[Rfam]
RNA sequence: AACGUGCUCCGGGGUCGGUGUGAAUCCGAACCGGCGGUGACAGUCCGCGAGCGUCAAGGGAAACCGAGACGCUGAUCCGGUGAAAUUCCGGUACCGACGGUGAUGCGAGAGAAAUCUCGCUAGUCCGGAAGGGAGGCAGCACGAC
Numbered sequence: 001a002a003c004g005u006g007c008u009c010c011g012g013g014g015u016c017g018g019u020g021u022g023a024a025u026c027c028g029a030a031c032c033g034g035c036g037g038u039g040a041c042a043g044u045c046c047g048c049g050a051g052c053g054u055c056a057a058g059g060g061a062a063a064c065c066g067a068g069a070c071g072c073u074g075a076u077c078c079g080g081u082g083a084a085a086u087u088c089c090g091g092u093a094c095c096g097a098c099g100g101u102g103a104u105g106c107g108a109g110a111g112a113a114a115u116c117u118c119g120c121u122a123g124u125c126c127g128g129a130a131g132g133g134a135g136g137c138a139g140c141a142c143g144a145c
Base pairs, nucleotide, nucleotide: 003143004142005141006140007139008138009136010135016028017027018026032096033095034048035047036046037045043094044093051072052071053070077091078090079089080088098127099126100125
FMN riboswitch aptamer (RFN element): a 145-nucleotide RNA sequence from Microbacterium sp. CH12i. The match comes from Rfam's covariance-model search (79 bits).